[Rfam]
RNA: mir-544 microRNA precursor family
RNA sequence: AUUAUCUGGAGAUCUUGUUAGAAUGCAGGUUCUGGUUUAGAAGAUGUGAGAUGGGGCUUGAGAUUCUGCAUUUCUAACAAGCUCCCAGGUGAUGCUCA
Number, nucleotide and partner (000 for none) at each position: 001a000002u000003u091004a090005u089006c000007u000008g000009g085010a000011g083012a000013u000014c081015u080016u079017g078018u077019u076020a075021g073022a072023a071024u000025g069026c068027a067028g066029g065030u000031u063032c062033u061034g000035g000036u000037u000038u000039a000040g000041a000042a000043g000044a000045u000046g000047u000048g000049a000050g000051a000052u000053g000054g000055g000056g000057c000058u000059u000060g000061a033062g032063a031064u000065u029066c028067u027068g026069c025070a000071u023072u022073u021074c000075u020076a019077a018078c017079a016080a015081g014082c000083u011084c000085c009086c000087a000088g000089g005090u004091g003092a000093u000094g000095c000096u000097c000098a000